[Rfam]
RNA sequence: AGAACAUACAUUCAUUAUCCCUAGGGCCAUAGGAUAAACAAAUACCCUACAAAACCAAGUUAGCACACCCUAGAAUGGUUUUAACACGAUUACUAACCUAUGGUUGAUAGAAAAAUCUC
Numbered sequence: 001a002g003a004a005c006a007u008a009c010a011u012u013c014a015u016u017a018u019c020c021c022u023a024g025g026g027c028c029a030u031a032g033g034a035u036a037a038a039c040a041a042a043u044a045c046c047c048u049a050c051a052a053a054a055c056c057a058a059g060u061u062a063g064c065a066c067a068c069c070c071u072a073g074a075a076u077g078g079u080u081u082u083a084a085c086a087c088g089a090u091u092a093c094u095a096a097c098c099u100a101u102g103g104u105u106g107a108u109a110g111a112a113a114a115a116u117c118u119c
Stems, first nucleotide, its partner, number of pairs: 010116003015113002022106001025105009048086001053080002056077002060073004